[Rfam]
RNA sequence: GGGCAAUGACGAUUUCAUCGUGAAAGGUCUCGUUCGUCGUAAUGGCUCUUUAAAGGCCUUGCCGACCAUCCUGAUAUAUCACCACCCAUAUUCCGAGUCC
Numbered sequence: 001g002g003g004c005a006a007u008g009a010c011g012a013u014u015u016c017a018u019c020g021u022g023a024a025a026g027g028u029c030u031c032g033u034u035c036g037u038c039g040u041a042a043u044g045g046c047u048c049u050u051u052a053a054a055g056g057c058c059u060u061g062c063c064g065a066c067c068a069u070c071c072u073g074a075u076a077u078a079u080c081a082c083c084a085c086c087c088a089u090a091u092u093c094c095g096a097g098u099c100c
Stems, first nucleotide, its partner, number of pairs: 001100004047055001
RNA: Small nucleolar RNA Z43